RNA sequence: UCCUGUUGUACCGCAGCUGCUGAACACUGCCCAAGAUUGGCGUGAUCAAUUCUAACGGAAGGCAACUCUUGUGCGUGUGACAGCGGCUAUGGUAUUCAGGAAAACAUCUUC
Numbered sequence: 001u002c003c004u005g006u007u008g009u010a011c012c013g014c015a016g017c018u019g020c021u022g023a024a025c026a027c028u029g030c031c032c033a034a035g036a037u038u039g040g041c042g043u044g045a046u047c048a049a050u051u052c053u054a055a056c057g058g059a060a061g062g063c064a065a066c067u068c069u070u071g072u073g074c075g076u077g078u079g080a081c082a083g084c085g086g087c088u089a090u091g092g093u094a095u096u097c098a099g100g101a102a103a104a105c106a107u108c109u110u111c
Base pairs, nucleotide, nucleotide: 005097008095009094010093011092012091015088016087017086018085019084020083021082022081025077026076028075029074030073032071033070035068036067
RNA: mir-210 microRNA precursor family